[Rfam]
RNA sequence: AAAUGGCGAUGAAGUGGAAGGUUGCCCAAAGGGGAAAUUUUCACAGAGCAUGUCUAGAUCAAAGAAUCGGGCGACAA
Numbered sequence: 001a002a003a004u005g006g007c008g009a010u011g012a013a014g015u016g017g018a019a020g021g022u023u024g025c026c027c028a029a030a031g032g033g034g035a036a037a038u039u040u041u042c043a044c045a046g047a048g049c050a051u052g053u054c055u056a057g058a059u060c061a062a063a064g065a066a067u068c069g070g071g072c073g074a075c076a077a
Stems, first nucleotide, its partner, number of pairs: 014044003018041004025033003051076004057072001059070002
The record is a 77-nucleotide RNA sequence from Alkaliphilus oremlandii, which matches "S10-Clostridia ribosomal protein leader" in Rfam. By type it is a cis-regulatory leader. Pairs were carried over by alignment from the consensus structure, which is taken from published work. Taxonomically the source falls in Alkaliphilus oremlandii (Bacteria, Bacillati, Bacillota, Clostridia). For this family Rfam cites "Discovery of 20 novel ribosomal leader candidates in bacteria and archaea" (Eckert and Weinberg, BMC Microbiol, 2020).